[Rfam]
RNA sequence: ACUCAACACUAUUUUUUUAAAAAGGGUGAGUCUAAGCUAGUAAAGCAUGCCGUAUGUGUAAAUUUAUUUACCAUCGCGGAUUCUUGAUCAGCCAGUUAGCCCUAAACUUGUCUUACAAGGAGUUU
Dot-bracket structure: ......................(((((........(((....(((....((((......................))))...)))....)))......)))))......................
Numbered sequence: 001a002c003u004c005a006a007c008a009c010u011a012u013u014u015u016u017u018u019a020a021a022a023a024g025g026g027u028g029a030g031u032c033u034a035a036g037c038u039a040g041u042a043a044a045g046c047a048u049g050c051c052g053u054a055u056g057u058g059u060a061a062a063u064u065u066a067u068u069u070a071c072c073a074u075c076g077c078g079g080a081u082u083c084u085u086g087a088u089c090a091g092c093c094a095g096u097u098a099g100c101c102c103u104a105a106a107c108u109u110g111u112c113u114u115a116c117a118a119g120g121a122g123u124u125u
Stems, first nucleotide, its partner, number of pairs: 023103005036092003043085003050079004
Annotation
Rfam assigns this 125-nucleotide RNA from Aureibaculum marinum to the family "6S-Flavo RNA". Lineage of the source: Bacteria > Pseudomonadati > Bacteroidota > Flavobacteriaceae > Aureibaculum. Rfam classes the family as a small RNA.